[Rfam]
This 182-nucleotide RNA sequence from Enterovibrio coralii belongs to the Rfam family "Lysine riboswitch aptamer". The family's consensus secondary structure is taken from published work.

RNA sequence: UAUGCACGUAGAGGUGCAUUGUUUAUCAGUAUCUUGUCUUAGGGUGAUACCAAAGAGGGCAAGAGAAAGGAAACAGUGCCGAAGCAGAAACCAGAUUAUCAGUCUAUUCUGCUGGGGUUGUAACCGAAGAGGUACAACACUGCCAUAGUAUUGGGAUUUAACUAUGGAGCGCUACUGUAGGG
Numbered sequence: 001u002a003u004g005c006a007c008g009u010a011g012a013g014g015u016g017c018a019u020u021g022u023u024u025a026u027c028a029g030u031a032u033c034u035u036g037u038c039u040u041a042g043g044g045u046g047a048u049a050c051c052a053a054a055g056a057g058g059g060c061a062a063g064a065g066a067a068a069g070g071a072a073a074c075a076g077u078g079c080c081g082a083a084g085c086a087g088a089a090a091c092c093a094g095a096u097u098a099u100c101a102g103u104c105u106a107u108u109c110u111g112c113u114g115g116g117g118u119u120g121u122a123a124c125c126g127a128a129g130a131g132g133u134a135c136a137a138c139a140c141u142g143c144c145a146u147a148g149u150a151u152u153g154g155g156a157u158u159u160a161a162c163u164a165u166g167g168a169g170c171g172c173u174a175c176u177g178u179a180g181g182g
Stems, first nucleotide, its partner, number of pairs: 008175004016079009032064008083113007094103001114141002117138006124131001143167007

A search with the family's covariance model found it, with a score of 127 bits. Gene Ontology term of the family: lysine biosynthetic process.